[Rfam]
RNA sequence: CAUCGAAGGAAAUGCCUGCCGAGUCUCUCGGCGACAUGCCCAGGUAGCCACGAUCUUCAAGGCUACGACGCGGCUUGGCCGCGCUGAUCGACCCCGUUCGCUGCGCAUCCCUGGACGCGAACAGCCACUGCGCAUGCGGUGGCGGAUGC
Numbered sequence: 001c002a003u004c005g006a007a008g009g010a011a012a013u014g015c016c017u018g019c020c021g022a023g024u025c026u027c028u029c030g031g032c033g034a035c036a037u038g039c040c041c042a043g044g045u046a047g048c049c050a051c052g053a054u055c056u057u058c059a060a061g062g063c064u065a066c067g068a069c070g071c072g073g074c075u076u077g078g079c080c081g082c083g084c085u086g087a088u089c090g091a092c093c094c095c096g097u098u099c100g101c102u103g104c105g106c107a108u109c110c111c112u113g114g115a116c117g118c119g120a121a122c123a124g125c126c127a128c129u130g131c132g133c134a135u136g137c138g139g140u141g142g143c144g145g146a147u148g149c
Stems, first nucleotide, its partner, number of pairs: 012037003015033001018032006044066006052089004067085001069083005117149003124143008